[Rfam]
RNA sequence: UGAAGCUCCAUCUACAAAUGGAUAAGGAUUUUUUCUUGGUGUAUAUGAGUUUUUGAAAGUAAAGGAGCAAAAACAAAACUCUUGUUCUAUCAAGAGGACGUUAUUGCUCCUUUA
Numbered sequence: 001u002g003a004a005g006c007u008c009c010a011u012c013u014a015c016a017a018a019u020g021g022a023u024a025a026g027g028a029u030u031u032u033u034u035c036u037u038g039g040u041g042u043a044u045a046u047g048a049g050u051u052u053u054u055g056a057a058a059g060u061a062a063a064g065g066a067g068c069a070a071a072a073a074c075a076a077a078a079c080u081c082u083u084g085u086u087c088u089a090u091c092a093a094g095a096g097g098a099c100g101u102u103a104u105u106g107c108u109c110c111u112u113u114a
Stems, first nucleotide, its partner, number of pairs: 007022005061113010072102002079096005
Plastid-psbA-1 3UTR RNA: a 114-nucleotide sequence. Rfam's curators put it in the seed alignment. Clan: Plastid-psbA 3UTR RNA clan. Rfam classes the family as a cis-regulatory element.